Description: Rfam assigns this 106-nucleotide part of an RNA from Cloacimonas acidaminivorans to the family "Bacterial large subunit ribosomal RNA".
[Rfam]
Nucleotides: 106
Stems, first nucleotide, its partner, number of pairs: 002088004008082025092105001094103001
Number, partner (000 for none) and nucleotide at each position: 001000g002088g003087u004086c005085a006000g007000a008082g009081c010080a011079g012078g013077c014076g015075u016074c017073a018072a019071c020070u021069a022068u023067u024066g025065g026064a027063a028062g029061u030060u031059g032058g033000g034000a035000g036000g037000u038000u039000g040000a041000g042000a043000g044000g045000u046000c047000a048000u049000u050000c051000u052000c053000a054000g055000c056000u057000a058032u059031u060030a061029a062028c063027u064026u065025u066024c067023a068022a069021u070020a071019g072018u073017u074016g075015a076014c077013g078012c079011c080010u081009g082008u083000g084000a085005u086004g087003g088002c089000g090000u091000g092105c093000c094103u095000u096000u097000u098000g099000c100000a101000u102000a103094a104000u105092g106000a

Taxonomically the source falls in Cloacimonas acidaminivorans (SeqCode) (Bacteria, Pseudomonadati, Cloacimonadia (SeqCode), Cloacimonadales (SeqCode)).